This 203-nucleotide RNA sequence from Ornithorhynchus anatinus belongs to the Rfam family "Small nucleolar RNA SNORA74". The literature on the family includes a 1997 paper in Genes Dev by Ganot et al., "The family of box ACA small nucleolar RNAs is defined by an evolutionarily conserved secondary structure and ubiquitous sequence elements essential for RNA accumulation".
RNA sequence: UCCAGCGGCUGUCAGCUGUCCAGGUGGGCGCGGUACCUGCGAUAGCGUUACACCGCUGGGACAUCAGGGCGCCGUCCAGACGACCCUCCGCCUCCGCCGCUGUUUUAGCGUCGGGUCCGGCUGGGCCCGGGCGGCGCUUUGCGUUCCCGAGAGUGGACGGACUCUUGCCCCGUAGAGUCGGCCCUAGAUUGGAUGCAAACAUC
Numbered sequence: 001u002c003c004a005g006c007g008g009c010u011g012u013c014a015g016c017u018g019u020c021c022a023g024g025u026g027g028g029c030g031c032g033g034u035a036c037c038u039g040c041g042a043u044a045g046c047g048u049u050a051c052a053c054c055g056c057u058g059g060g061a062c063a064u065c066a067g068g069g070c071g072c073c074g075u076c077c078a079g080a081c082g083a084c085c086c087u088c089c090g091c092c093u094c095c096g097c098c099g100c101u102g103u104u105u106u107a108g109c110g111u112c113g114g115g116u117c118c119g120g121c122u123g124g125g126c127c128c129g130g131g132c133g134g135c136g137c138u139u140u141g142c143g144u145u146c147c148c149g150a151g152a153g154u155g156g157a158c159g160g161a162c163u164c165u166u167g168c169c170c171c172g173u174a175g176a177g178u179c180g181g182c183c184c185u186a187g188a189u190u191g192g193a194u195g196c197a198a199a200c201a202u203c
Stems, first nucleotide, its partner, number of pairs: 001060008011051002015046006021039005069137009082127001084125003088120003094114002096111001098110004139198008155184002160179006
U19 belongs to the H/ACA class of snoRNAs. snoRNAs bind a number of proteins (including dyskerin, Gar1p and Nop10p in the case of the H/ACA class) to form snoRNP complexes. This class are thought to guide the sites of modification of uridines to pseudouridines by forming direct base pairing interactions with substrate RNAs. Targets may include ribosomal and spliceosomal RNAs but the exact functions of many snoRNAs, including U19, are not confirmed. The organism belongs to Ornithorhynchus, within Eukaryota.